[Rfam]
RNA sequence: UGCCCUUAGAAACCAAGUGUGGGUGUGGCCGGUUAAACACAAAUGGCGACCCAUCCUUAGUUUCUGAGGUCC
Numbered sequence: 001u002g003c004c005c006u007u008a009g010a011a012a013c014c015a016a017g018u019g020u021g022g023g024u025g026u027g028g029c030c031g032g033u034u035a036a037a038c039a040c041a042a043a044u045g046g047c048g049a050c051c052c053a054u055c056c057u058u059a060g061u062u063u064c065u066g067a068g069g070u071c072c
Base pairs, nucleotide, nucleotide: 002071004069005068006067007066009064010063011062012061013060016057017056021052022051023050024049028047029046030045031044
Rfam assigns this 72-nucleotide RNA sequence from Dissostichus mawsoni to the family "mir-551 microRNA precursor family". The literature on the family includes a 2008 paper in Genome Res by Murchison et al., "Conservation of small RNA pathways in platypus". It scores 61 bits against the family's covariance model. The base pairs follow the family's consensus structure, which was predicted with RNAalifold.